This 77-nucleotide RNA sequence from Terrapene triunguis belongs to the Rfam family "mir-16 microRNA precursor family". The match comes from Rfam's covariance-model search (40 bits). Its Rfam clan is "mir-15 clan".
[Rfam]
RNA sequence: GCCACCAGCAGCAGCGCAGAAGUAAGGGUGGCAUGGUAUGUAUUGCCACCCUUACUUUUGUGCUGCUUCUGGCAGGC
Numbered sequence: 001g002c003c004a005c006c007a008g009c010a011g012c013a014g015c016g017c018a019g020a021a022g023u024a025a026g027g028g029u030g031g032c033a034u035g036g037u038a039u040g041u042a043u044u045g046c047c048a049c050c051c052u053u054a055c056u057u058u059u060g061u062g063c064u065g066c067u068u069c070u071g072g073c074a075g076g077c
Base pairs, nucleotide, nucleotide: 001077002076003075005072006071010067011066012065013064014063015062016061017060019057021056022055023054024053025052026051027050028049